Source information:
A member of the RNA family "TPP riboswitch aptamer (THI element)" from Alkalicella caledoniensis, 109 nucleotides long. The match comes from Rfam's covariance-model search (90 bits). The family's consensus secondary structure is taken from published work. The source organism's lineage runs through Bacteria, Bacillati, Clostridia, Proteinivoracaceae and Alkalicella.

RNA sequence: UAAAGCCACUAGGGGAGCUAUUUUAAAUAGCUGAGAAGAUGAUAUGAUUAUCUGACCCUUUGAACCUGAUCUGGUUAACACCAGCGUAGGGAAGUCGGUUUAGUAUAUA
Numbered sequence: 001u002a003a004a005g006c007c008a009c010u011a012g013g014g015g016a017g018c019u020a021u022u023u024u025a026a027a028u029a030g031c032u033g034a035g036a037a038g039a040u041g042a043u044a045u046g047a048u049u050a051u052c053u054g055a056c057c058c059u060u061u062g063a064a065c066c067u068g069a070u071c072u073g074g075u076u077a078a079c080a081c082c083a084g085c086g087u088a089g090g091g092a093a094g095u096c097g098g099u100u101u102a103g104u105a106u107a108u109a
Stems, first nucleotide, its partner, number of pairs: 006097001008095003011059004016053001017031005038052005065090004071084004
Dot-bracket structure: .....(.(((((((.((((((.....)))))......(((((.....))))))..)))).....((((..((((......))))..))))..))).)............